[Rfam]
RNA sequence: CCUCCCGUUCUUGGCGGGGCCCGGCUGCUCCGUGCCGGGGCCCGUGAUGUGCGGAGGGAAAGCAGCGACCGGCGCGAAGUCUUCGGUGGCGGCGGUGGCGUGCGCCGCUCCCACCCUCCCACGCCGGGACACGG
Numbered sequence: 001c002c003u004c005c006c007g008u009u010c011u012u013g014g015c016g017g018g019g020c021c022c023g024g025c026u027g028c029u030c031c032g033u034g035c036c037g038g039g040g041c042c043c044g045u046g047a048u049g050u051g052c053g054g055a056g057g058g059a060a061a062g063c064a065g066c067g068a069c070c071g072g073c074g075c076g077a078a079g080u081c082u083u084c085g086g087u088g089g090c091g092g093c094g095g096u097g098g099c100g101u102g103c104g105c106c107g108c109u110c111c112c113a114c115c116c117u118c119c120c121a122c123g124c125c126g127g128g129a130c131a132c133g134g
Stems, first nucleotide, its partner, number of pairs: 001057005015044004020039001022037004070126005089108006
RNA: Small nucleolar RNA SNORA57
Organism: Erithacus rubecula